[Rfam]
RNA sequence: UAGAAGAAUCUGUUAAGCUCAGGAGGGAUAGCGCCAUGGAAGAUCUUGAAGCUUUUUGAUAUGUAAUCUGAUCCUCAUUAGCGCUAUCCAUCCUGAGUUUCAUCGGUUCUUCUU
Numbered sequence: 001u002a003g004a005a006g007a008a009u010c011u012g013u014u015a016a017g018c019u020c021a022g023g024a025g026g027g028a029u030a031g032c033g034c035c036a037u038g039g040a041a042g043a044u045c046u047u048g049a050a051g052c053u054u055u056u057u058g059a060u061a062u063g064u065a066a067u068c069u070g071a072u073c074c075u076c077a078u079u080a081g082c083g084c085u086a087u088c089c090a091u092c093c094u095g096a097g098u099u100u101c102a103u104c105g106g107u108u109c110u111u112c113u114u
Stems, first nucleotide, its partner, number of pairs: 010105001016099009026089009
This 114-nucleotide RNA from Durio zibethinus belongs to the Rfam family "MIR390 microRNA precursor family". For this family Rfam cites "Expression of Arabidopsis MIRNA genes" (Xie et al., Plant Physiol, 2005). The match comes from Rfam's covariance-model search (110 bits). The organism belongs to Durio, within Eukaryota.